[Rfam]
RNA sequence: AAAAAGGCCUUCUGUCGUGAGUGACACACAUGGGACAGCUCGUUUGUUCUUCAUGCGGAAUCGACAUCAAGAGAUUUCGGAAGCAUAAUUUUUUGAUAAUCAGGCAGCUGUGAUUGUUGGUCCUGGCGCCCCU
Numbered sequence: 001a002a003a004a005a006g007g008c009c010u011u012c013u014g015u016c017g018u019g020a021g022u023g024a025c026a027c028a029c030a031u032g033g034g035a036c037a038g039c040u041c042g043u044u045u046g047u048u049c050u051u052c053a054u055g056c057g058g059a060a061u062c063g064a065c066a067u068c069a070a071g072a073g074a075u076u077u078c079g080g081a082a083g084c085a086u087a088a089u090u091u092u093u094u095g096a097u098a099a100u101c102a103g104g105c106a107g108c109u110g111u112g113a114u115u116g117u118u119g120g121u122c123c124u125g126g127c128g129c130c131c132c133u
Base pairs, nucleotide, nucleotide: 009083010082011081012080013026014025015024016023017022027055028054032050033049034048035047036046037045038044056079057078058077059076060075061074062073103130104129105128107127108126109125110124112122113121114120115119

Shown here is a 133-nucleotide RNA sequence from Eschrichtius robustus, a member of the family "U11 spliceosomal RNA". The source organism's lineage runs through Eukaryota, Vertebrata, Mammalia, Boreoeutheria and Eschrichtius. Gene Ontology terms of the family: pre-mRNA 5'-splice site binding, U11 snRNP and mRNA 5'-splice site recognition. Clan: U1 clan. A reference for the family is Montzka and Steitz (1988), "Additional low-abundance human small nuclear ribonucleoproteins: U11, U12, etc", Proc Natl Acad Sci U S A.